[Rfam]
Rfam assigns this 117-nucleotide RNA from Zea mays to the family "Small nucleolar RNA snoR104". It scores 73 bits against the family's covariance model. The literature on the family includes a 2002 paper in Curr Biol by Marker et al., "Experimental RNomics: identification of 140 candidates for small non-messenger RNAs in the plant Arabidopsis thaliana".
RNA sequence: AAGGAGACUGUUAGAGUUGACAUUCCUACCUGAUACAAUCUUCCUAUAUUGAUUCUGUCAUUUUUGUGCUUGCUGAACUUUUAGUCUGUUCUGCUGGCCUUAACAGGCAGUAUAUCA
Number, nucleotide and partner (000 for none) at each position: 001a031002a000003g029004g000005a027006g025007a024008c000009u022010g021011u020012u000013a000014g000015a000016g000017u000018u000019g000020a011021c010022a009023u000024u007025c006026c000027u005028a000029c003030c000031u001032g000033a000034u000035a000036c000037a000038a000039u000040c000041u000042u000043c000044c000045u000046a000047u000048a000049u000050u000051g000052a000053u000054u000055c000056u112057g111058u110059c000060a000061u000062u000063u000064u000065u000066g000067u000068g098069c097070u096071u000072g094073c093074u000075g091076a000077a089078c088079u000080u000081u000082u000083a000084g000085u000086c000087u000088g078089u077090u000091c075092u000093g073094c072095u000096g070097g069098c068099c000100u000101u000102a000103a000104c000105a000106g000107g000108c000109a000110g058111u057112a056113u000114a000115u000116c000117a000